Rfam assigns this 119-nucleotide RNA sequence from Schizosaccharomyces japonicus to the family "U5 spliceosomal RNA".
[Rfam]
RNA sequence: GUCAAAGCAUUUCACAAAAUCUAUCGCAUCUAUUUCUUGCCUUUUACCAGAAAUAGCCGUUUGUGAGGUGUGUGAAUUUGACUGUACAAUUUUUGCUACUGUUUCCCUAACGGGGGACU
Numbered sequence: 001g002u003c004a005a006a007g008c009a010u011u012u013c014a015c016a017a018a019a020u021c022u023a024u025c026g027c028a029u030c031u032a033u034u035u036c037u038u039g040c041c042u043u044u045u046a047c048c049a050g051a052a053a054u055a056g057c058c059g060u061u062u063g064u065g066a067g068g069u070g071u072g073u074g075a076a077u078u079u080g081a082c083u084g085u086a087c088a089a090u091u092u093u094u095g096c097u098a099c100u101g102u103u104u105c106c107c108u109a110a111c112g113g114g115g116g117a118c119u
Stems, first nucleotide, its partner, number of pairs: 003080004008070011030056008101118006

Lineage of the source: Eukaryota > Opisthokonta > Fungi > Schizosaccharomycetaceae > Schizosaccharomyces japonicus. U5 RNA is a component of both types of known spliceosome. The precise function of this molecule is unknown, though it is known that the 5' loop is required for splice site selection and p220 binding, and that both the 3' stem-loop and the Sm site are important for Sm protein binding and cap methylation. Rfam's curators put it in the seed alignment.